The record is a 61-nucleotide RNA sequence from Peribacillus asahii, which matches "Ribosomal protein L13 leader" in Rfam.
About the family: This family is a putative r-protein leader autoregulatory structure found in B. subtilis and other low-GC Gram-positive bacteria. It is located in the 5' untranslated regions of mRNAs encoding the L13-S9 (rplM-rpsI) ribosomal protein operon.
The literature on the family includes a 1994 paper in Prog Nucleic Acid Res Mol Biol by Zengel and Lindahl, "Diverse mechanisms for regulating ribosomal protein synthesis in Escherichia coli".
Lineage of the source: Bacteria > Bacilli > Caryophanales > Bacillaceae > Peribacillus.

[Rfam]
Nucleotides: 061
Base pairs, nucleotide, nucleotide: 007057008056009055010054011053012051018044019043020042021041022040023039024038025037026036
Number, partner (000 for none) and nucleotide at each position: 001000g002000g003000u004000a005000u006000g007057u008056a009055u010054u011053u012051u013000a014000a015000u016000c017000c018044c019043g020042c021041g022040a023039u024038a025037a026036g027000c028000c029000c030000c031000g032000g033000a034000a035000g036026u037025u038024u039023a040022u041021u042020g043019u044018g045000a046000u047000g048000a049000a050000g051012a052000u053011a054010a055009a056008u057007a058000u059000u060000a061000a